RNA sequence: AUUGGCUGGAUGAGUGUGAGGCGUUGGAUUGAUCUCAUUCAAUCCGAGCCCCACACUCAUCAGGGAUUCGC
Numbered sequence: 001a002u003u004g005g006c007u008g009g010a011u012g013a014g015u016g017u018g019a020g021g022c023g024u025u026g027g028a029u030u031g032a033u034c035u036c037a038u039u040c041a042a043u044c045c046g047a048g049c050c051c052c053a054c055a056c057u058c059a060u061c062a063g064g065g066a067u068u069c070g071c
Stems, first nucleotide, its partner, number of pairs: 006064002009061010020050003024047009
A member of the RNA family "MIR6151 microRNA precursor family" from Nicotiana attenuata, 71 nucleotides long. Its family is annotated with RISC complex and miRNA-mediated post-transcriptional gene silencing in the Gene Ontology. The match comes from Rfam's covariance-model search (89 bits). Rfam 15.1 lists 930 matches to the family in 3 species. The organism belongs to Nicotiana, within Eukaryota. Pairs were carried over by alignment from the consensus structure, which was predicted with RNAalifold.